Rfam assigns this 45-nucleotide RNA sequence to the family "eL15-Euryarchaeota ribosomal protein leader".
The sequence is in the family's curated seed alignment.
By type it is a cis-regulatory leader.
On this family, see Eckert and Weinberg, BMC Microbiol 2020: "Discovery of 20 novel ribosomal leader candidates in bacteria and archaea".
[Rfam]
Nucleotides: 045
Stems, first nucleotide, its partner, number of pairs: 001015005016041003024035004
Number, partner (000 for none) and nucleotide at each position: 001015g002014c003013g004012g005011a006000c007000u008000u009000c010000a011005u012004c013003c014002g015001c016041u017040g018039g019000g020000a021000u022000g023000u024035a025034a026033c027032c028000g029000c030000a031000u032027g033026g034025u035024u036000g037000a038000a039018c040017c041016a042000u043000a044000a045000a